[Rfam]
RNA sequence: AGCGAGAUAUAGCUUUAAUGUCGUAUAAUCUUGGGGAUAAGGCCCAAAAGUUUCUACCGAGCUACCGUAAAUGGCUUGACUACGAGAAAGUAAUACAUGUAU
Numbered sequence: 001a002g003c004g005a006g007a008u009a010u011a012g013c014u015u016u017a018a019u020g021u022c023g024u025a026u027a028a029u030c031u032u033g034g035g036g037a038u039a040a041g042g043c044c045c046a047a048a049a050g051u052u053u054c055u056a057c058c059g060a061g062c063u064a065c066c067g068u069a070a071a072u073g074g075c076u077u078g079a080c081u082a083c084g085a086g087a088a089a090g091u092a093a094u095a096c097a098u099g100u101a102u
Base pairs, nucleotide, nucleotide: 019087021085022084023083024082025081029049031047032046033045034044035043058078059077060076061075062074063073064072
A member of the RNA family "Purine riboswitch aptamer" from Priestia megaterium, 102 nucleotides long. The organism belongs to Priestia megaterium, within Bacteria.